RNA: RT-2 RNA
RNA sequence: CGGGGUCAAAUGGAGUAGCAAGAGAGCGAAAGACGACCCACGCAAAAGGAGACAUACUUCCCUGGGUGAAAAUCCCUAAAACUGCCCUCUGACGGCUCCGCACGGACGCUUCUUGCAUGGCAGGGGAUUGCGCUGAACCUGUUUCAUGUGCUGGGCCAAAGUAGUUUAGAGGCGCACCUACAACUUAACUAUGCGGAGGCGCGAAUACUUAUUAUGACGAGC
Number, nucleotide and partner (000 for none) at each position: 001c000002g000003g000004g038005g037006u036007c035008a000009a000010a000011u000012g000013g000014a000015g000016u000017a000018g000019c026020a000021a000022g000023a000024g000025a000026g019027c000028g000029a000030a000031a000032g000033a000034c000035g007036a006037c005038c004039c000040a000041c000042g000043c000044a000045a000046a000047a000048g000049g000050a000051g000052a000053c000054a000055u000056a000057c000058u000059u000060c000061c000062c000063u000064g000065g077066g076067u000068g074069a000070a000071a000072a000073u000074c068075c000076c066077u065078a000079a000080a000081a000082c000083u000084g202085c201086c199087c198088u197089c196090u195091g194092a000093c193094g157095g156096c155097u154098c153099c000100g151101c150102a149103c148104g000105g000106a000107c000108g116109c115110u000111u000112c000113u000114u000115g109116c108117a000118u000119g143120g142121c141122a140123g139124g138125g000126g000127a000128u000129u000130g000131c000132g000133c000134u000135g000136a000137a000138c124139c123140u122141g121142u120143u119144u000145c000146a000147u000148g103149u102150g101151c100152u000153g098154g097155g096156c095157c094158a000159a000160a000161g192162u191163a190164g189165u188166u000167u187168a179169g178170a000171g000172g000173c000174g000175c000176a000177c000178c169179u168180a000181c000182a000183a000184c000185u000186u000187a167188a165189c164190u163191a162192u161193g093194c091195g090196g089197a088198g087199g086200c000201g085202c084203g000204a000205a000206u000207a000208c000209u000210u000211a000212u000213u000214a000215u000216g000217a000218c000219g000220a000221g000222c000